[Rfam]
RNA sequence: ACCGAUCGGCCGGGGUGCCUGAGGGCUGAGAACACACCCGCCGAACCUGAUCCGGGUCAUGCCGGCGCAGGGAGCCGACACGGUAGUGCG
Numbered sequence: 001a002c003c004g005a006u007c008g009g010c011c012g013g014g015g016u017g018c019c020u021g022a023g024g025g026c027u028g029a030g031a032a033c034a035c036a037c038c039c040g041c042c043g044a045a046c047c048u049g050a051u052c053c054g055g056g057u058c059a060u061g062c063c064g065g066c067g068c069a070g071g072g073a074g075c076c077g078a079c080a081c082g083g084u085a086g087u088g089c090g
Base pairs, nucleotide, nucleotide: 006078007077008076009075010074011040012039013038014037016034017026018025019024046071047070048069049068052065053064054063055062

Rfam assigns this 90-nucleotide sequence from Phytoactinopolyspora halotolerans to the family "TPP riboswitch aptamer (THI element)". Pairs were carried over by alignment from the consensus structure, which is taken from published work. It scores 71 bits against the family's covariance model. The organism belongs to Phytoactinopolyspora, within Bacteria.